[Rfam]
RNA sequence: CUUCGCGUUGGGUUUACGGGCGAUAAUACCAUUCCCCACUGCAUGCAACAGGUGCGUUUUACCCAAGCCAGUGCCGCCAUA
Numbered sequence: 001c002u003u004c005g006c007g008u009u010g011g012g013u014u015u016a017c018g019g020g021c022g023a024u025a026a027u028a029c030c031a032u033u034c035c036c037c038a039c040u041g042c043a044u045g046c047a048a049c050a051g052g053u054g055c056g057u058u059u060u061a062c063c064c065a066a067g068c069c070a071g072u073g074c075c076g077c078c079a080u081a
Base pairs, nucleotide, nucleotide: 005042006041007040009038010037011036012035016032018030020029051078052077053076054075056074057073061072062071
This 81-nucleotide RNA sequence from Pectobacterium atrosepticum belongs to the Rfam family "antisense RNA of dnaA mRNA". Rfam links the family to the GO term regulation of mRNA stability. Pairs were carried over by alignment from the consensus structure, which was predicted with RNAfold.